[Rfam]
RNA sequence: GCCGGAGUGAACGCAGACGGUUCUGCGUGCGGACUUCAAAUCCGUAGGGGCCGGAAGGCUCAGUGGUUCAACUCCACCUCGCUGGC
Numbered sequence: 001g002c003c004g005g006a007g008u009g010a011a012c013g014c015a016g017a018c019g020g021u022u023c024u025g026c027g028u029g030c031g032g033a034c035u036u037c038a039a040a041u042c043c044g045u046a047g048g049g050g051c052c053g054g055a056a057g058g059c060u061c062a063g064u065g066g067u068u069c070a071a072c073u074c075c076a077c078c079u080c081g082c083u084g085g086c
Base pairs, nucleotide, nucleotide: 001086002085003084004083005082007080009078012027013026014025015024016023017022028046029045030044031043032042033041048061049060050059051058052057063077064076065075066074